[Rfam]
A member of the RNA family "RNase E 5' UTR element" from Xenorhabdus innexi, 341 nucleotides long. Its family is annotated with regulation of gene expression in the Gene Ontology. The organism belongs to Xenorhabdus, within Bacteria. It is annotated as a cis-regulatory element. On this family, see Diwa et al., Genes Dev 2000: "An evolutionarily conserved RNA stem-loop functions as a sensor that directs feedback regulation of RNase E gene expression".
RNA sequence: UUUCCGGCCACAGUUUACUAAACUAUGAAUGGCAGAUUGAAAUAUUGUUUGUUAUCUGUUUGUUUGAACAAAAACGCAGCAAUGGCGUAAGACGUAAUGUUUAAUCAAACAAUUUAUGGGCUGUGAGUUGCUACUUACUGGAUUGGGUAAAACCUGUACUAAAUUUAUUACAGUAUCCCCCAACAAAGAGCGCUGCGUUUCUUACAAAGAAAUGAAAUUCAGGCUUGCCGACAAUUAGGCGCCUCUAUACAAACGAUAGCCGUGAGGCUGACGGUUUUGUAAAAGACACGAGGCCAUCGGUUACCAGUAGUGCUCUUUUUUUACUCAUGGCUCUAUACUAA
Numbered sequence: 001u002u003u004c005c006g007g008c009c010a011c012a013g014u015u016u017a018c019u020a021a022a023c024u025a026u027g028a029a030u031g032g033c034a035g036a037u038u039g040a041a042a043u044a045u046u047g048u049u050u051g052u053u054a055u056c057u058g059u060u061u062g063u064u065u066g067a068a069c070a071a072a073a074a075c076g077c078a079g080c081a082a083u084g085g086c087g088u089a090a091g092a093c094g095u096a097a098u099g100u101u102u103a104a105u106c107a108a109a110c111a112a113u114u115u116a117u118g119g120g121c122u123g124u125g126a127g128u129u130g131c132u133a134c135u136u137a138c139u140g141g142a143u144u145g146g147g148u149a150a151a152a153c154c155u156g157u158a159c160u161a162a163a164u165u166u167a168u169u170a171c172a173g174u175a176u177c178c179c180c181c182a183a184c185a186a187a188g189a190g191c192g193c194u195g196c197g198u199u200u201c202u203u204a205c206a207a208a209g210a211a212a213u214g215a216a217a218u219u220c221a222g223g224c225u226u227g228c229c230g231a232c233a234a235u236u237a238g239g240c241g242c243c244u245c246u247a248u249a250c251a252a253a254c255g256a257u258a259g260c261c262g263u264g265a266g267g268c269u270g271a272c273g274g275u276u277u278u279g280u281a282a283a284a285g286a287c288a289c290g291a292g293g294c295c296a297u298c299g300g301u302u303a304c305c306a307g308u309a310g311u312g313c314u315c316u317u318u319u320u321u322u323a324c325u326c327a328u329g330g331c332u333c334u335a336u337a338c339u340a341a
Base pairs, nucleotide, nucleotide: 005035007033008032014027016025017024057111058110059109060108061107062106067101068100069099070098074095075094076093079086080085118333119332120331121330122329123328124327125326126325127324128323136309137308138307139306140305141304145180146179147178149176154173155172156171157170158169189225190224191223193222194221195220198217199216200215201214227301228300229299230298231297241294242293243292244291245290254273255272257270258269259268260267261266